[Rfam]
Rfam assigns this 201-nucleotide sequence from Medicago truncatula to the family "MIR2670 microRNA precursor family".
Nucleotides: 201
Stems, first nucleotide, its partner, number of pairs: 003199002006196015022180002026176005032171005039162004043155003047151003051147001053145002056142001058140004063135004068130007075121005081115002086106009
Number, partner (000 for none) and nucleotide at each position: 001000u002000a003199u004198g005000a006196g007195g008194u009193a010192a011191a012190u013189g014188g015187u016186g017185a018184g019183u020182a021000c022180c023179c024000a025000a026176c027175u028174u029173g030172g031000a032171g033170g034169a035168a036167g037000u038000g039162a040161u041160c042159a043155a044154c045153c046000c047151u048150u049149g050000g051147g052000a053145u054144a055000a056142a057000a058140u059139u060138a061137a062000c063135u064134u065133u066132g067000c068130u069129u070128c071127u072126u073125u074124u075121u076120a077119c078118c079117c080000c081115a082114a083000a084000a085000a086106c087105u088104u089103u090102u091101u092100a093099c094098c095000g096000u097000g098094g099093g100092u101091a102090a103089a104088a105087a106086g107000a108000a109000u110000c111000u112000u113000c114082u115081u116000a117079g118078g119077g120076u121075a122000u123000a124074a125073a126072a127071a128070g129069a130068a131000c132066c133065a134064g135063a136000u137061u138060u139059a140058g141000a142056u143000g144054u145053a146000g147051c148000g149049c150048a151047a152000g153045g154044g155043u156000u157000g158000a159042u160041g161040a162039u163000g164000u165000a166000u167036u168035u169034u170033c171032c172030c173029c174028a175027a176026g177000a178000a179023g180022g181000a182020u183019g184018c185017u186016c187015a188014c189013u190012a191011u192010u193009u194008a195007c196006c197000c198004c199003a200000a201000g
The base pairs follow the family's consensus structure, which was predicted with RNAalifold. The match comes from Rfam's covariance-model search (181 bits).